[Rfam]
RNA sequence: AAACCAUAUGAUGAAUAUGGAUUUACAUUUUCUCAUGACGGUCAUCUGAGAGUCACUUUGAUGUAAUCAUCCAAUAUUUCUGAGUGGUU
Numbered sequence: 001a002a003a004c005c006a007u008a009u010g011a012u013g014a015a016u017a018u019g020g021a022u023u024u025a026c027a028u029u030u031u032c033u034c035a036u037g038a039c040g041g042u043c044a045u046c047u048g049a050g051a052g053u054c055a056c057u058u059u060g061a062u063g064u065a066a067u068c069a070u071c072c073a074a075u076a077u078u079u080c081u082g083a084g085u086g087g088u089u
Stems, first nucleotide, its partner, number of pairs: 001089002004086001050058003
RNA: Small nucleolar RNA Z161/Z228